Source information: Shown here is an 88-nucleotide RNA from Frankliniella occidentalis, a member of the family "mir-276 microRNA precursor family". Rfam 15.1 lists 200 matches to the family in 170 species. Pairs were carried over by alignment from the consensus structure, which was predicted with RNAalifold. A reference for the family is Skalsky et al. (2010), "Identification of microRNAs expressed in two mosquito vectors, Aedes albopictus and Culex quinquefasciatus", BMC Genomics.
Nucleotides: 088
Stems, first nucleotide, its partner, number of pairs: 012078003017073004022068005028062010
Number, partner (000 for none) and nucleotide at each position: 001000c002000u003000g004000g005000u006000a007000a008000u009000g010000a011000u012078c013077c014076a015000g016000u017073a018072g019071c020070g021000a022068g023067g024066u025065a026064u027000a028062g029061a030060g031059u032058u033057c034056c035055u036054a037053c038000g039000u040000g041000g042000u043000g044000u045000u046000g047000g048000g049000u050000a051000c052000a053037g054036u055035a056034g057033g058032a059031a060030c061029u062028u063000c064026a065025u066024a067023c068022c069000g070020u071019g072018c073017u074000c075000u076014u077013g078012g079000a080000c081000u082000u083000g084000c085000c086000a087000u088000g